[Rfam]
RNA: c-di-GMP-I riboswitch aptamer
Organism: Peribacillus deserti
RNA sequence: GUACGAUAAGAGCAAACCUGCCUGAAAAGCUGGGACGCAAAACUAUAGGGGCUAAAGUACAUCUAAGCCAGCCAGUUGCCGAA
Number, nucleotide and partner (000 for none) at each position: 001g000002u000003a000004c000005g000006a000007u000008a000009a000010g000011a000012g038013c037014a000015a000016a000017c033018c032019u000020g030021c000022c029023u028024g000025a000026a000027a000028a023029g022030c020031u000032g018033g017034g000035a000036c000037g013038c012039a000040a000041a077042a076043c075044u074045a000046u000047a000048g073049g072050g069051g068052c067053u000054a000055a000056a000057g063058u000059a000060c000061a000062u000063c057064u000065a000066a000067g052068c051069c050070a000071g000072c049073c048074a044075g043076u042077u041078g000079c000080c000081g000082a000083a000